[Rfam]
RNA sequence: CCCCCACCCAUGUGUGUAGAACCCCAAAUGAUCACCAUUAAAGUUGGUACGGAUCUCUAGAAAAGUCAAGUCUCACACCUAUGUGAUAACUUUUCUAGAGAUCCGUGCCAACUUUAAUGGUGAUCUUUUGGGGUCCUACACACAAGGGUGGGGG
Numbered sequence: 001c002c003c004c005c006a007c008c009c010a011u012g013u014g015u016g017u018a019g020a021a022c023c024c025c026a027a028a029u030g031a032u033c034a035c036c037a038u039u040a041a042a043g044u045u046g047g048u049a050c051g052g053a054u055c056u057c058u059a060g061a062a063a064a065g066u067c068a069a070g071u072c073u074c075a076c077a078c079c080u081a082u083g084u085g086a087u088a089a090c091u092u093u094u095c096u097a098g099a100g101a102u103c104c105g106u107g108c109c110a111a112c113u114u115u116a117a118u119g120g121u122g123a124u125c126u127u128u129u130g131g132g133g134u135c136c137u138a139c140a141c142a143c144a145a146g147g148g149u150g151g152g153g154g
Stems, first nucleotide, its partner, number of pairs: 002153008011144003015140005021134008030125003034121033068087001069082001
RNA: MIR8565 microRNA precursor family
Organism: Amborella trichopoda